[Rfam]
RNA: FMN riboswitch aptamer (RFN element)
RNA sequence: AUUCAUCUUCGGGGCAGGGUGAAAUUCCCGACCGGCGGUAUUAGAACUUUGUUUCUUCAGCCCGCGAGCCGUUAAGUUAAGGUUGAUUUGGUUAAAUUCCAAAGCCGACAGUACAGUCUGGAUGGGAGAAGGUGAAG
Numbered sequence: 001a002u003u004c005a006u007c008u009u010c011g012g013g014g015c016a017g018g019g020u021g022a023a024a025u026u027c028c029c030g031a032c033c034g035g036c037g038g039u040a041u042u043a044g045a046a047c048u049u050u051g052u053u054u055c056u057u058c059a060g061c062c063c064g065c066g067a068g069c070c071g072u073u074a075a076g077u078u079a080a081g082g083u084u085g086a087u088u089u090g091g092u093u094a095a096a097u098u099c100c101a102a103a104g105c106c107g108a109c110a111g112u113a114c115a116g117u118c119u120g121g122a123u124g125g126g127a128g129a130a131g132g133u134g135a136a137g
Stems, first nucleotide, its partner, number of pairs: 003135008017029003031117002033107002035065004060105002068083003087103005109120003